The family of this 85-nucleotide RNA sequence from Populus tomentosa is "mir-156 microRNA precursor family".

RNA sequence: GUGACAGAAGAGAGUGAGCACACAGGGUACUUUCUUGCAUGACAUCCAUGCUUGAAACUUUGCGUGCUUACUCUCUAUCUGUCAC
Numbered sequence: 001g002u003g004a005c006a007g008a009a010g011a012g013a014g015u016g017a018g019c020a021c022a023c024a025g026g027g028u029a030c031u032u033u034c035u036u037g038c039a040u041g042a043c044a045u046c047c048a049u050g051c052u053u054g055a056a057a058c059u060u061u062g063c064g065u066g067c068u069u070a071c072u073c074u075c076u077a078u079c080u081g082u083c084a085c
Stems, first nucleotide, its partner, number of pairs: 001085008010075012023062003
Notes
It scores 83 bits against the family's covariance model. Rfam's curators write: This family represents the plant microRNA (miRNA) precursor mir-156. On this family, see Reinhart et al., Genes Dev 2002: "MicroRNAs in plants".